[Rfam]
RNA sequence: AAUUUUCUUCGGGGCAGGGUGAAAUUCCCAACCGACGGUAACAAGUACGCUUGGAGUCCGUGACCCGUUAGCAUUUAUGUUAACGGUUGAACCAGUGAAAAUCUGGUACCGACAGUAUAGUCUGGAUGGGAGAAGAAAACU
Dot-bracket structure: ..((((((((......(((.......))).[[((((((.................[[))))...((..................))....(((((.......)))))]])).(((....]]))).......))))))))..
Numbered sequence: 001a002a003u004u005u006u007c008u009u010c011g012g013g014g015c016a017g018g019g020u021g022a023a024a025u026u027c028c029c030a031a032c033c034g035a036c037g038g039u040a041a042c043a044a045g046u047a048c049g050c051u052u053g054g055a056g057u058c059c060g061u062g063a064c065c066c067g068u069u070a071g072c073a074u075u076u077a078u079g080u081u082a083a084c085g086g087u088u089g090a091a092c093c094a095g096u097g098a099a100a101a102u103c104u105g106g107u108a109c110c111g112a113c114a115g116u117a118u119a120g121u122c123u124g125g126a127u128g129g130g131a132g133a134a135g136a137a138a139a140c141u
Stems, first nucleotide, its partner, number of pairs: 003139008017029003031121002033111002035061004056109002065086002091107005113124003

Shown here is a 141-nucleotide sequence from Limosilactobacillus reuteri, a member of the family "FMN riboswitch aptamer (RFN element)". NCBI's taxonomy places the organism under Bacteria, Bacillati, Bacilli, Limosilactobacillus, Limosilactobacillus reuteri. It is one of the family's seed sequences.